[Rfam]
RNA: Xanthomonadaceae sRNA asX1
RNA sequence: CACUCAGCGGGGCAGGCGCCAGGCGCCGGUCGGGGAUUGGAACAGGGCCGACCACGUGCCUGUUGAGGAAGCGCCAGGGGUCGAAUGUCGGGGGACAUUCGACCCCUUUUUU
Numbered sequence: 001c002a003c004u005c006a007g008c009g010g011g012g013c014a015g016g017c018g019c020c021a022g023g024c025g026c027c028g029g030u031c032g033g034g035g036a037u038u039g040g041a042a043c044a045g046g047g048c049c050g051a052c053c054a055c056g057u058g059c060c061u062g063u064u065g066a067g068g069a070a071g072c073g074c075c076a077g078g079g080g081u082c083g084a085a086u087g088u089c090g091g092g093g094g095a096c097a098u099u100c101g102a103c104c105c106c107u108u109u110u111u112u
Base pairs, nucleotide, nucleotide: 003067004066005065006064007063008062009061010060011059012057013056016026017025018024028053029052030051031050032049033048038045076107077106078105079104080103081102082101083100084099085098086097087096088095089094